[Rfam]
RNA sequence: CCGGGACCUGGCCACUUGCCGGAGCCUGCCCGAUAGACUGUCCUCUGGAACGUCGCGGGGCGCAGCCCCCUGCCGGUCCGCGAAACGAGUAGCCAGCAGCCGCUGCAACCCCAGGGAG
Numbered sequence: 001c002c003g004g005g006a007c008c009u010g011g012c013c014a015c016u017u018g019c020c021g022g023a024g025c026c027u028g029c030c031c032g033a034u035a036g037a038c039u040g041u042c043c044u045c046u047g048g049a050a051c052g053u054c055g056c057g058g059g060g061c062g063c064a065g066c067c068c069c070c071u072g073c074c075g076g077u078c079c080g081c082g083a084a085a086c087g088a089g090u091a092g093c094c095a096g097c098a099g100c101c102g103c104u105g106c107a108a109c110c111c112c113a114g115g116g117a118g
Base pairs, nucleotide, nucleotide: 047079048078049077051075052074055073057071058070059069060068094105095104096103097102
RNA: Streptomyces-metK RNA
Organism: Streptomyces laurentii